[Rfam]
Nucleotides: 247
Base pairs, nucleotide, nucleotide: 003081004080005079017068018067019066020065022063023061024060025059026058029043030042031041032040033039093163094162095161096160097159101125102124103123105121107119108118109117110116127153128152129151130150131149132148133147135145136144137143138142168241169240170239174235175234176233186226187225188224189223191221192220193219194218197211198210199209200208201207202206
Number, partner (000 for none) and nucleotide at each position: 001000u002000g003081c004080c005079a006000u007000u008000g009000c010000u011000a012000a013000g014000u015000c016000a017068a018067g019066g020065c021000u022063u023061c024060u025059c026058c027000c028000u029043a030042c031041g032040a033039c034000c035000u036000u037000g038000u039033g040032u041031c042030g043029u044000g045000u046000u047000u048000u049000u050000c051000u052000u053000c054000c055000u056000u057000g058026g059025g060024a061023g062000u063022a064000u065020g066019u067018c068017u069000g070000u071000u072000a073000c074000a075000g076000c077000u078000c079005u080004g081003g082000c083000a084000g085000a086000u087000u088000g089000a090000u091000g092000c093163u094162g095161a096160u097159c098000c099000g100000c101125g102124c103123c104000g105121a106000c107119c108118u109117u110116c111000u112000u113000u114000c115000u116110g117109a118108a119107g120000c121105u122000a123103g124102g125101c126000u127153g128152g129151c130150u131149g132148g133147u134000u135145u136144u137143c138142g139000u140000u141000u142138u143137g144136a145135a146000u147133a148132c149131c150130a151129g152128u153127c154000g155000u156000a157000a158000g159097g160096a161095u162094c163093a164000a165000g166000c167000u168241g169240u170239g171000u172000u173000u174235u175234g176233u177000u178000u179000u180000u181000g182000a183000g184000u185000u186226g187225a188224g189223a190000u191221c192220u193219g194218c195000u196000u197211c198210u199209g200208c201207u202206c203000a204000a205000u206202g207201a208200g209199u210198g211197g212000c213000c214000c215000a216000u217000a218194g219193c220192a221191g222000u223189u224188c225187u226186c227000u228000u229000a230000g231000u232000a233176a234175c235174a236000u237000u238000u239170c240169a241168c242000a243000c244000a245000u246000u247000u
About this RNA
The record is a 247-nucleotide sequence from Aspergillus violaceofuscus, which matches "Small nucleolar RNA snR191" in Rfam. The match comes from Rfam's covariance-model search (59 bits). The organism belongs to Aspergillus violaceofuscus, within Eukaryota. The family's consensus secondary structure was predicted with WAR. By type it is an H/ACA-box small nucleolar RNA.